[Rfam]
RNA: Small nucleolar RNA SNORD18
Organism: Polypterus senegalus
RNA sequence: CUUGCAUGAUGAUGUCCACUUCUAGGUCCGUGUUUCUGACAGACUGUGAUUUUUAUUGUGGAAGUUCUGACAGG
Dot-bracket structure: ((((..................................................................))))